[Rfam]
RNA sequence: GGGCUGGCUUUAGCUCAGCGGUUCCUUCGCAUACAGAACUUCCUACUCGCAGUUGCUCACUUGAGCGACAGCGGUUCGAGACCCGCGGGCGCUCUCCAGCCCUUUU
Numbered sequence: 001g002g003g004c005u006g007g008c009u010u011u012a013g014c015u016c017a018g019c020g021g022u023u024c025c026u027u028c029g030c031a032u033a034c035a036g037a038a039c040u041u042c043c044u045a046c047u048c049g050c051a052g053u054u055g056c057u058c059a060c061u062u063g064a065g066c067g068a069c070a071g072c073g074g075u076u077c078g079a080g081a082c083c084c085g086c087g088g089g090c091g092c093u094c095u096c097c098a099g100c101c102c103u104u105u106u
Base pairs, nucleotide, nucleotide: 002101003100004099005098006097007096013090014089015088016087018086019085020084021083026080027079028078029077
RNA: Vault RNA
Organism: Myotis lucifugus